[Rfam]
RNA: transfer-messenger RNA
Organism: Luteimonas sp.
RNA sequence: GGGGGUGCACUGGCUUCGACGGGGGUCGCGAAAUCGCUUGGCGCAUGCCGAGGGGGUAGCUUUCCUCGUUAAUCCAGCUGCAAAACUCAGACGCCAACGACGACGUCUACGCUCUCGCCGCUUAAGGCGUAAGCCCCGAACCCACUUGUGCCCGUGCUCGUGGAUGUAGGGUCAUCAUCACGGAACCGGCCCCGGCGGCGACCCGCCAACCAGGGCUUAACUAAAGCGGGUGUGUCUUAUGGUGUGCCUUGCACGUCGUGUUGCCAUGAGACGAGAACCAACGUCGUGCUAAGCAUGUAGUGCCGGGGAUGGAGUGCCUUCGGACGGGGGUUCGAUUCCCCCCACCUCCACCA
Numbered sequence: 001g002g003g004g005g006u007g008c009a010c011u012g013g014c015u016u017c018g019a020c021g022g023g024g025g026u027c028g029c030g031a032a033a034u035c036g037c038u039u040g041g042c043g044c045a046u047g048c049c050g051a052g053g054g055g056g057u058a059g060c061u062u063u064c065c066u067c068g069u070u071a072a073u074c075c076a077g078c079u080g081c082a083a084a085a086c087u088c089a090g091a092c093g094c095c096a097a098c099g100a101c102g103a104c105g106u107c108u109a110c111g112c113u114c115u116c117g118c119c120g121c122u123u124a125a126g127g128c129g130u131a132a133g134c135c136c137c138g139a140a141c142c143c144a145c146u147u148g149u150g151c152c153c154g155u156g157c158u159c160g161u162g163g164a165u166g167u168a169g170g171g172u173c174a175u176c177a178u179c180a181c182g183g184a185a186c187c188g189g190c191c192c193c194g195g196c197g198g199c200g201a202c203c204c205g206c207c208a209a210c211c212a213g214g215g216c217u218u219a220a221c222u223a224a225a226g227c228g229g230g231u232g233u234g235u236c237u238u239a240u241g242g243u244g245u246g247c248c249u250u251g252c253a254c255g256u257c258g259u260g261u262u263g264c265c266a267u268g269a270g271a272c273g274a275g276a277a278c279c280a281a282c283g284u285c286g287u288g289c290u291a292a293g294c295a296u297g298u299a300g301u302g303c304c305g306g307g308g309a310u311g312g313a314g315u316g317c318c319u320u321c322g323g324a325c326g327g328g329g330g331u332u333c334g335a336u337u338c339c340c341c342c343c344a345c346c347u348c349c350a351c352c353a
Stems, first nucleotide, its partner, number of pairs: 001349007020322007033310003037306001039305005044297005049068005056081006114133002116129004135171003139167001142163004148157001152183005189216004194211002200231001202229002234272010245260003251289005257283001326342005